Notes: chrB-a RNA: an 83-nucleotide RNA sequence from Litoreibacter ponti. NCBI's taxonomy places the organism under Bacteria, Pseudomonadati, Pseudomonadota, Roseobacteraceae, Litoreibacter.
RNA sequence: AUCAUGGGGUUCGCGAGCACCCCGUGAGGCUGCGGCCCAAGCAUCGCAUCCCAAAUCAACAUGAAGAACGGGGUGCAACCAUG
Numbered sequence: 001a002u003c004a005u006g007g008g009g010u011u012c013g014c015g016a017g018c019a020c021c022c023c024g025u026g027a028g029g030c031u032g033c034g035g036c037c038c039a040a041g042c043a044u045c046g047c048a049u050c051c052c053a054a055a056u057c058a059a060c061a062u063g064a065a066g067a068a069c070g071g072g073g074u075g076c077a078a079c080c081a082u083g
Stems, first nucleotide, its partner, number of pairs: 005024006046076006